[Rfam]
RNA: Actino-pnp RNA
RNA sequence: GCCGGUCCUCGGUUGUGGCCCUCGGGCUUGAGUAGUCCCGGGCGCCUCCAUCGAAGACCGGC
Numbered sequence: 001g002c003c004g005g006u007c008c009u010c011g012g013u014u015g016u017g018g019c020c021c022u023c024g025g026g027c028u029u030g031a032g033u034a035g036u037c038c039c040g041g042g043c044g045c046c047u048c049c050a051u052c053g054a055a056g057a058c059c060g061g062c
Base pairs, nucleotide, nucleotide: 001062002061003060004059005058006057007056009054010053011052012051013050017046018045019044021042022041023040024039025038026037028035029034